RNA sequence: AUCAAAUAAAGACCUCCUAACUUUAUUUUGAUAACAUCCUAAACUUUUUCAUAAUAAUCUCCGAAAGAAGGGCUCGUAAAGGGCUCUUCUUU
Numbered sequence: 001a002u003c004a005a006a007u008a009a010a011g012a013c014c015u016c017c018u019a020a021c022u023u024u025a026u027u028u029u030g031a032u033a034a035c036a037u038c039c040u041a042a043a044c045u046u047u048u049u050c051a052u053a054a055u056a057a058u059c060u061c062c063g064a065a066a067g068a069a070g071g072g073c074u075c076g077u078a079a080a081g082g083g084c085u086c087u088u089c090u091u092u
Stems, first nucleotide, its partner, number of pairs: 001032004005027007067089009

This 92-nucleotide RNA sequence from Streptococcus himalayensis belongs to the Rfam family "Cia-dependent small RNA csRNA1". NCBI's taxonomy places the organism under Bacteria, Bacilli, Lactobacillales, Streptococcaceae, Streptococcus.